[Rfam]
RNA sequence: CACUGGAAAAUUGAAUAUCCUGAGACAGCCGGUGUCCCGCUUGUUCGGGACUUAAUGAACGCCAGCCGAGGAAAAAAUCAGACUCAUAAGAGUUGAUUCUAAGUCCUUGUGCAUGGCACAGGGACUUUUUUAUUGAAAGG
Numbered sequence: 001c002a003c004u005g006g007a008a009a010a011u012u013g014a015a016u017a018u019c020c021u022g023a024g025a026c027a028g029c030c031g032g033u034g035u036c037c038c039g040c041u042u043g044u045u046c047g048g049g050a051c052u053u054a055a056u057g058a059a060c061g062c063c064a065g066c067c068g069a070g071g072a073a074a075a076a077a078u079c080a081g082a083c084u085c086a087u088a089a090g091a092g093u094u095g096a097u098u099c100u101a102a103g104u105c106c107u108u109g110u111g112c113a114u115g116g117c118a119c120a121g122g123g124a125c126u127u128u129u130u131u132a133u134u135g136a137a138a139g140g
Base pairs, nucleotide, nucleotide: 028066029065031063032062033061034051035050036049037048038047039046103125104124105123106122107121108120109119110118111117112116
The family of this 140-nucleotide RNA sequence from Dehalogenimonas formicexedens is "Ribosomal protein L10 leader". Rfam classes the family as a cis-regulatory leader. Taxonomically the source falls in Dehalogenimonas (Bacteria, Dehalococcoidia, Dehalococcoidales, Dehalococcoidaceae).